[Rfam]
RNA sequence: UGAUGUUUCUCAAGAGAGAGUUGGAAUAUCCAACCGCCGAAGAGGCAAGCCGGGCGUAUGAUGGUGAGCGCAUGCAAGGUGAAACUUUCAGGCAAAAGGACUGGGAAACGUAC
Numbered sequence: 001u002g003a004u005g006u007u008u009c010u011c012a013a014g015a016g017a018g019a020g021u022u023g024g025a026a027u028a029u030c031c032a033a034c035c036g037c038c039g040a041a042g043a044g045g046c047a048a049g050c051c052g053g054g055c056g057u058a059u060g061a062u063g064g065u066g067a068g069c070g071c072a073u074g075c076a077a078g079g080u081g082a083a084a085c086u087u088u089c090a091g092g093c094a095a096a097a098g099g100a101c102u103g104g105g106a107a108a109c110g111u112a113c
Base pairs, nucleotide, nucleotide: 006108007107008106009105010104011103012102020034021033022032023031036093037092038091039089040088043087044086045085049080050079
The family of this 113-nucleotide RNA from Lachnospiraceae bacterium 5_1_57FAA is "Glycine riboswitch aptamer".
Lineage of the source: Bacteria > Bacillota > Clostridia > Lachnospirales > Lachnospiraceae.
Rfam describes the family as follows. This family represents the bacterial glycine riboswitch.
It scores 61 bits against the family's covariance model.